[Rfam]
RNA sequence: CUUACAGAGUUCAUUGGCAUUCUGUCCACCUCCAUACUAGUUUCAGGACAAUCCCCCCCCCCCCUCUCCACACCACCAAGGUUCACUACUUGGGGUGUGUUCGGGGGGGGCACAGCUCCACAGAGAUGGAGGUGGGCAUCCUGCCAAUCGAGCUCUGUGGG
Numbered sequence: 001c002u003u004a005c006a007g008a009g010u011u012c013a014u015u016g017g018c019a020u021u022c023u024g025u026c027c028a029c030c031u032c033c034a035u036a037c038u039a040g041u042u043u044c045a046g047g048a049c050a051a052u053c054c055c056c057c058c059c060c061c062c063c064c065u066c067u068c069c070a071c072a073c074c075a076c077c078a079a080g081g082u083u084c085a086c087u088a089c090u091u092g093g094g095g096u097g098u099g100u101u102c103g104g105g106g107g108g109g110g111c112a113c114a115g116c117u118c119c120a121c122a123g124a125g126a127u128g129g130a131g132g133u134g135g136g137c138a139u140c141c142u143g144c145c146a147a148u149c150g151a152g153c154u155c156u157g158u159g160g161g
Stems, first nucleotide, its partner, number of pairs: 011151001014147006023138013